[Rfam]
RNA sequence: AUUAUCCUGAGAUGUUCGUAGGAAUUGUUUACUUUGAGCCAACACCUUAAAAAAGGGAGCUUGCCGUUAUUGGCUCGCUUACAUGCCCCGCAAGCUGGGGACGUAAAAAGGCCAAUGCGAAGCACCCACCUGCCUUGCAGGUUCAAAGCACCAAGUUCUUACGGCAUAGUCGGGAUAAUU
Number, nucleotide and partner (000 for none) at each position: 001a000002u178003u177004a176005u175006c174007c173008u172009g171010a170011g000012a167013u166014g165015u164016u000017c163018g162019u161020a000021g000022g000023a000024a000025u000026u000027g000028u000029u000030u150031a000032c148033u147034u000035u145036g144037a143038g142039c141040c140041a000042a000043c000044a000045c000046c000047u000048u000049a000050a000051a000052a000053a000054a000055g127056g126057g125058a000059g123060c122061u121062u120063g000064c000065c000066g000067u000068u000069a116070u115071u114072g113073g112074c111075u110076c000077g000078c000079u000080u000081a104082c103083a000084u000085g000086c100087c099088c098089c097090g096091c000092a000093a000094g000095c000096u090097g089098g088099g087100g086101a000102c000103g082104u081105a000106a000107a000108a000109a000110g075111g074112c073113c072114a071115a070116u069117g000118c000119g000120a062121a061122g060123c059124a000125c057126c056127c055128a000129c000130c000131u000132g000133c000134c000135u000136u000137g000138c000139a000140g040141g039142u038143u037144c036145a035146a000147a033148g032149c000150a030151c000152c000153a000154a000155g000156u000157u000158c000159u000160u000161a019162c018163g017164g015165c014166a013167u012168a000169g000170u010171c009172g008173g007174g006175a005176u004177a003178a002179u000180u000